Rfam assigns this 84-nucleotide sequence from Heterocephalus glaber to the family "mir-3154 microRNA precursor family". The family's consensus secondary structure was predicted with RNAalifold. A search with the family's covariance model found it, with a score of 71 bits.
[Rfam]
RNA sequence: AGGCCCCUCCUCCCAGCCCAGCUCCCGCGCUCACCCCUGCCACGUCAAAGGAGGCAGAAGGGGAGUCGCAGCAGAGAGGGACCG
Numbered sequence: 001a002g003g004c005c006c007c008u009c010c011u012c013c014c015a016g017c018c019c020a021g022c023u024c025c026c027g028c029g030c031u032c033a034c035c036c037c038u039g040c041c042a043c044g045u046c047a048a049a050g051g052a053g054g055c056a057g058a059a060g061g062g063g064a065g066u067c068g069c070a071g072c073a074g075a076g077a078g079g080g081a082c083c084g
Stems, first nucleotide, its partner, number of pairs: 002083002005080005011075002021072003027069003030065003034062003037057005043051001